Background: The record is a 131-nucleotide sequence from Onychostoma macrolepis, which matches "Small nucleolar RNA SNORA9" in Rfam. The family has 36 seed sequences and 1,202 matches in Rfam 15.1. Rfam links the family to the GO terms RNA processing and nucleolus. Clan: SNORA9 clan. Rfam's curators write: ACA9 is a member of the H/ACA class of snoRNA that guide the sites of modification of uridines to pseudouridines. Taxonomically the source falls in Onychostoma (Eukaryota, Opisthokonta, Teleostomi, Actinopterygii). The base pairs follow the family's consensus structure, which was predicted with PFOLD.
[Rfam]
RNA sequence: CUGCAGGCUAUCCAGCAAGGCUGAGUCAUUGUGACUCUUGCCUCUCCUGUAGUGUCUGCUAGAGAGAUUGAGGUGGUUUGAGGCCUGCUGUGGUGCCCUUCCCAGCAUGGUUAUAUAAUCUUCAAACAUUU
Numbered sequence: 001c002u003g004c005a006g007g008c009u010a011u012c013c014a015g016c017a018a019g020g021c022u023g024a025g026u027c028a029u030u031g032u033g034a035c036u037c038u039u040g041c042c043u044c045u046c047c048u049g050u051a052g053u054g055u056c057u058g059c060u061a062g063a064g065a066g067a068u069u070g071a072g073g074u075g076g077u078u079u080g081a082g083g084c085c086u087g088c089u090g091u092g093g094u095g096c097c098c099u100u101c102c103c104a105g106c107a108u109g110g111u112u113a114u115a116u117a118a119u120c121u122u123c124a125a126a127c128a129u130u131u
Stems, first nucleotide, its partner, number of pairs: 003059006018043003023037005069124005084110002086107003090103001092101001